[Rfam]
RNA sequence: CAACCAUAUGAUGAUUUUGGAUUCAAAUUCUCACGACGGUCGUCUGAGACACUUAAACAAGUGUCGUUUCUGAUGUACUGUUCCAAUAUUUCUGAUGGUU
Number, nucleotide and partner (000 for none) at each position: 001c000002a099003a000004c097005c000006a000007u000008a000009u000010g000011a000012u000013g000014a000015u000016u000017u000018u000019g000020g000021a000022u000023u000024c000025a000026a000027a000028u000029u000030c000031u000032c000033a000034c000035g000036a000037c000038g000039g000040u000041c000042g000043u000044c000045u000046g000047a000048g000049a000050c063051a062052c061053u060054u059055a000056a000057a000058c000059a054060a053061g052062u051063g050064u000065c000066g000067u000068u000069u000070c000071u000072g000073a000074u000075g000076u000077a000078c000079u000080g000081u000082u000083c000084c000085a000086a000087u000088a000089u000090u000091u000092c000093u000094g000095a000096u000097g004098g000099u002100u000

The record is a 100-nucleotide RNA sequence from Camellia sinensis, which matches "Small nucleolar RNA Z161/Z228" in Rfam. Rfam classes the family as a C/D-box small nucleolar RNA. Clan: SNORD35 clan. Taxonomically the source falls in Camellia (Eukaryota, Streptophyta, Tracheophyta, Mesangiospermae).